This 348-nucleotide sequence from Allocoprococcus comes belongs to the Rfam family "Bacterial RNase P class A". The match comes from Rfam's covariance-model search (291 bits). By type it is a ribozyme. Lineage of the source: Bacteria > Bacillati > Clostridia > Allocoprococcus > Allocoprococcus comes. Its family is annotated with tRNA processing, dimeric ribonuclease P complex and ribonuclease P activity in the Gene Ontology.
RNA sequence: CAAGUAAGACAGACGUUCGCGGAUGCAGGUGCCGAAAGGCCGCAGACGAGGAAAGUCCGGGCUUCACAGGGCAGGAUGCCGGAUAACGUCCGGUAGAGGUGACUCUAAGGAUAGUGCAACAGAAAUAUACCGCCUGCAGAUGCAGGUAAGGUUGGAAGGGCAGUGUAAGAGACUACCGCCUGGGUGGUAACACACAGGGCAUAUGUAAACCCCAUCCGAAGCAAGACCGAAAAGAAGUGGUAUGGCGGCCCGUCAUGCUUCAGGUUGGUCGCUUGAGUCUGCUGGCAACAGCAGAACUGGAUAGAUGAACGUCCACGACAUAACCCGGCUUAUCGUUUUGCUUGCUUU
Numbered sequence: 001c002a003a004g005u006a007a008g009a010c011a012g013a014c015g016u017u018c019g020c021g022g023a024u025g026c027a028g029g030u031g032c033c034g035a036a037a038g039g040c041c042g043c044a045g046a047c048g049a050g051g052a053a054a055g056u057c058c059g060g061g062c063u064u065c066a067c068a069g070g071g072c073a074g075g076a077u078g079c080c081g082g083a084u085a086a087c088g089u090c091c092g093g094u095a096g097a098g099g100u101g102a103c104u105c106u107a108a109g110g111a112u113a114g115u116g117c118a119a120c121a122g123a124a125a126u127a128u129a130c131c132g133c134c135u136g137c138a139g140a141u142g143c144a145g146g147u148a149a150g151g152u153u154g155g156a157a158g159g160g161c162a163g164u165g166u167a168a169g170a171g172a173c174u175a176c177c178g179c180c181u182g183g184g185u186g187g188u189a190a191c192a193c194a195c196a197g198g199g200c201a202u203a204u205g206u207a208a209a210c211c212c213c214a215u216c217c218g219a220a221g222c223a224a225g226a227c228c229g230a231a232a233a234g235a236a237g238u239g240g241u242a243u244g245g246c247g248g249c250c251c252g253u254c255a256u257g258c259u260u261c262a263g264g265u266u267g268g269u270c271g272c273u274u275g276a277g278u279c280u281g282c283u284g285g286c287a288a289c290a291g292c293a294g295a296a297c298u299g300g301a302u303a304g305a306u307g308a309a310c311g312u313c314c315a316c317g318a319c320a321u322a323a324c325c326c327g328g329c330u331u332a333u334c335g336u337u338u339u340g341c342u343u344g345c346u347u348u
Stems, first nucleotide, its partner, number of pairs: 001344010011333001012313007020048002024044003028040001053331003057328005062221004069251004074217005079093005094108001095106004109212002114210002116206003130151002132147006159177002162174003178200001179198004184193003225270004234261005242256005278295007